RNA sequence: UCUGCAACUGAUGAUAAAACAGACAGGGACAGGUCAUCUGUACCCCACUCACGGGGUUGAUGACUUGUGUCUUGAUGGGAAUCUCUCUCAUGCAUG
Numbered sequence: 001u002c003u004g005c006a007a008c009u010g011a012u013g014a015u016a017a018a019a020c021a022g023a024c025a026g027g028g029a030c031a032g033g034u035c036a037u038c039u040g041u042a043c044c045c046c047a048c049u050c051a052c053g054g055g056g057u058u059g060a061u062g063a064c065u066u067g068u069g070u071c072u073u074g075a076u077g078g079g080a081a082u083c084u085c086u087c088u089c090a091u092g093c094a095u096g
Stems, first nucleotide, its partner, number of pairs: 003094004
Rfam assigns this 96-nucleotide RNA sequence from Colocasia esculenta to the family "Small nucleolar RNA R44/J54/Z268 family". Rfam classes the family as a C/D-box small nucleolar RNA. Its family is annotated with nucleolus and RNA processing in the Gene Ontology.